RNA sequence: AUAGUGGCCGGUAGCAAUGGCUUGUGGUUCGGUUGGCGACUGCUUGCUUAUAAUUCCUGGCUAGAUCGAAAUUCUAUCUAAUAUCCGUAGCGUCAUAAUGUGUAAUUUAGCCGACAUUUGGCGUAUGAAACGAAGAGACAUUUCC
Numbered sequence: 001a002u003a004g005u006g007g008c009c010g011g012u013a014g015c016a017a018u019g020g021c022u023u024g025u026g027g028u029u030c031g032g033u034u035g036g037c038g039a040c041u042g043c044u045u046g047c048u049u050a051u052a053a054u055u056c057c058u059g060g061c062u063a064g065a066u067c068g069a070a071a072u073u074c075u076a077u078c079u080a081a082u083a084u085c086c087g088u089a090g091c092g093u094c095a096u097a098a099u100g101u102g103u104a105a106u107u108u109a110g111c112c113g114a115c116a117u118u119u120g121g122c123g124u125a126u127g128a129a130a131c132g133a134a135g136a137g138a139c140a141u142u143u144c145c
Stems, first nucleotide, its partner, number of pairs: 005063006011056001024043005092139003099132003105126002108123001110122005

Shown here is a 145-nucleotide RNA from Drosophila rhopaloa, a member of the family "Small nucleolar RNA psi28S-2876". The family has 8 seed sequences and 16 matches in Rfam 15.1. Rfam classes the family as an H/ACA-box small nucleolar RNA. Pairs were carried over by alignment from the consensus structure, which was predicted with PFOLD. Rfam describes the family as follows. psi28S-2876 is a member of the H/ACA class of snoRNA. This family is responsible for guiding the modification of uridines 2876 and 2956 to pseudouridine in Drosophila 28S rRNA. Rfam links the family to the GO terms nucleolus and RNA processing.